A member of the RNA family "mir-11 microRNA precursor family" from Parnassius apollo, 71 nucleotides long.
The family's consensus secondary structure was predicted with RNAalifold.
The family is grouped with related families in Rfam's "mir-6 clan".

RNA sequence: CUUUGUGGCUAGCACUCGGGCUGUGACUUGUGUGUUACCGUCACAUCACAGUCAGAGUUCUAGCUAUACGG
Numbered sequence: 001c002u003u004u005g006u007g008g009c010u011a012g013c014a015c016u017c018g019g020g021c022u023g024u025g026a027c028u029u030g031u032g033u034g035u036u037a038c039c040g041u042c043a044c045a046u047c048a049c050a051g052u053c054a055g056a057g058u059u060c061u062a063g064c065u066a067u068a069c070g071g
Stems, first nucleotide, its partner, number of pairs: 004068003009063004014058004021051006030044003